[Rfam]
RNA sequence: AAGCAACCCAUCCAAAGUGCCGAAAAACGGGAGAGAACCGGCCGUAUAGGACUAAUGCAGGAUGGCAGUCAGACGUCCCCAGAGGCGCUCCGGGCCUGGCCUACUUGU
Numbered sequence: 001a002a003g004c005a006a007c008c009c010a011u012c013c014a015a016a017g018u019g020c021c022g023a024a025a026a027a028c029g030g031g032a033g034a035g036a037a038c039c040g041g042c043c044g045u046a047u048a049g050g051a052c053u054a055a056u057g058c059a060g061g062a063u064g065g066c067a068g069u070c071a072g073a074c075g076u077c078c079c080c081a082g083a084g085g086c087g088c089u090c091c092g093g094g095c096c097u098g099g100c101c102u103a104c105u106u107g108u
Stems, first nucleotide, its partner, number of pairs: 003088002007084001020041003028033001044076002047073001053065001055063001092102003